The record is a 187-nucleotide sequence from Acer saccharum, which matches "Small nucleolar RNA snoR138" in Rfam. The literature on the family includes a 2009 paper in Nucleic Acids Res by Chen and Wu, "Mining small RNA sequencing data: a new approach to identify small nucleolar RNAs in Arabidopsis". Its family is annotated with RNA processing and nucleolus in the Gene Ontology. The family's RNA type in Rfam is H/ACA-box small nucleolar RNA. NCBI's taxonomy places the organism under Eukaryota, Gunneridae, rosids, malvids, Acer.

[Rfam]
RNA sequence: AUAGCCUUAGAAUAACCAGAAGGUUCAACUGUAUACGAUACCGUUUGGUUCAGACAGAGGCUCAUACUAACUUUUCCGCAGCAGCAACUUUUUUUUAUCUCCGGAACGGCGUCGUUUAUCGCCUUCCCGAUUCGUUGCUUCGGAUACAUUUUUAUUUUUUAUUUUUAUUUAAUAGAUUUUUAUAUCU
Numbered sequence: 001a002u003a004g005c006c007u008u009a010g011a012a013u014a015a016c017c018a019g020a021a022g023g024u025u026c027a028a029c030u031g032u033a034u035a036c037g038a039u040a041c042c043g044u045u046u047g048g049u050u051c052a053g054a055c056a057g058a059g060g061c062u063c064a065u066a067c068u069a070a071c072u073u074u075u076c077c078g079c080a081g082c083a084g085c086a087a088c089u090u091u092u093u094u095u096u097a098u099c100u101c102c103g104g105a106a107c108g109g110c111g112u113c114g115u116u117u118a119u120c121g122c123c124u125u126c127c128c129g130a131u132u133c134g135u136u137g138c139u140u141c142g143g144a145u146a147c148a149u150u151u152u153u154a155u156u157u158u159u160u161a162u163u164u165u166u167a168u169u170u171a172a173u174a175g176a177u178u179u180u181u182a183u184a185u186c187u
Stems, first nucleotide, its partner, number of pairs: 003062006014050007023041002070150001072148001077143001079142001083139006157174001159172003